[Rfam]
RNA: Cyanobacterial functional RNA 1
Organism: Aerosakkonema funiforme
RNA sequence: GCGGAGACGCAUGUUUCCGUUCACUCCUCACACCACACUCCGCCCGGACUGAAGUUCGGGCGGUU
Numbered sequence: 001g002c003g004g005a006g007a008c009g010c011a012u013g014u015u016u017c018c019g020u021u022c023a024c025u026c027c028u029c030a031c032a033c034c035a036c037a038c039u040c041c042g043c044c045c046g047g048a049c050u051g052a053a054g055u056u057c058g059g060g061c062g063g064u065u
Base pairs, nucleotide, nucleotide: 001020002019003018004017005016006015007014008013041062042061043060044059045058046057047056